Cia-dependent small RNA csRNA1: a 93-nucleotide sequence from Streptococcus himalayensis. For this family Rfam cites "Identification of the genes directly controlled by the response regulator CiaR in Streptococcus pneumoniae: five out of 15 promoters drive expression of small non-coding RNAs" (Halfmann et al., Mol Microbiol, 2007). The base pairs follow the family's consensus structure. It scores 65 bits against the family's covariance model.
RNA sequence: AUCAAAUGAAAGCCUCCUAAUUUUAUUUGAUACAUCCUAACUUUUUUCAUCAUAAAUCUCCUAAUUGAGGGUUGGAAAUUUCCAGCCCUUUAU
Dot-bracket structure: (((((((((((.........)))))))))))...................................(((((((((......)))))))))...